[Rfam]
RNA sequence: UAACUUUGGUCAGAGUCAAACUGCUUUAAGUUUGACCAAAUUUAUAGAAAAAAAUAGUAACAUUUUUGGCCCAAGAUAAAUUUAUUAUAAAAAUAUAUUUAAUUAUUAACUUAAUAAAACUAAUUUGGUAAUGUAAAUAUUACUAUAUUUGUCUAUAAACUUAGGCAAACUUGAAGCAGUUUGACUUUGACCAAAGUUAA
Numbered sequence: 001u002a003a004c005u006u007u008g009g010u011c012a013g014a015g016u017c018a019a020a021c022u023g024c025u026u027u028a029a030g031u032u033u034g035a036c037c038a039a040a041u042u043u044a045u046a047g048a049a050a051a052a053a054a055u056a057g058u059a060a061c062a063u064u065u066u067u068g069g070c071c072c073a074a075g076a077u078a079a080a081u082u083u084a085u086u087a088u089a090a091a092a093a094u095a096u097a098u099u100u101a102a103u104u105a106u107u108a109a110c111u112u113a114a115u116a117a118a119a120c121u122a123a124u125u126u127g128g129u130a131a132u133g134u135a136a137a138u139a140u141u142a143c144u145a146u147a148u149u150u151g152u153c154u155a156u157a158a159a160c161u162u163a164g165g166c167a168a169a170c171u172u173g174a175a176g177c178a179g180u181u182u183g184a185c186u187u188u189g190a191c192c193a194a195a196g197u198u199a200a
Stems, first nucleotide, its partner, number of pairs: 005195005011189016031169004036165001045155004050150003055145003059141002062138004067133002071128005
A member of the RNA family "MIR1435 microRNA precursor family" from Oryza meridionalis, 200 nucleotides long. Taxonomically the source falls in Oryza (Eukaryota, Streptophyta, Poales, Poaceae).